The record is a 72-nucleotide RNA from Caenorhabditis nigoni, which matches "tRNA" in Rfam. A reference for the family is Hou (1993), "The tertiary structure of tRNA and the development of the genetic code", Trends Biochem Sci.

Nucleotides: 072
Base pairs, nucleotide, nucleotide: 001071002070003069004068005067006066007065010025011024012023013022028042029041030040031039048064049063050062051061052060
Number, partner (000 for none) and nucleotide at each position: 001071g002070c003069c004068u005067g006066c007065u008000u009000a010025g011024u012023a013022u014000a015000g016000u017000g018000g019000u020000u021000a022013g023012u024011a025010c026000u027000c028042c029041a030040c031039g032000u033000u034000g035000u036000g037000g038000c039031c040030g041029u042028g043000a044000c045000g046000a047000c048064g049063c050062u051061g052060g053000u054000u055000c056000g057000a058000u059000u060052c061051c062050a063049g064048c065007a066006g067005c068004a069003g070002g071001c072000a
Its family is annotated with triplet codon-amino acid adaptor activity in the Gene Ontology. The match comes from Rfam's covariance-model search (61 bits). The organism belongs to Caenorhabditis, within Eukaryota. About the family: Transfer RNA (tRNA) molecules are approximately 80 nucleotides in length.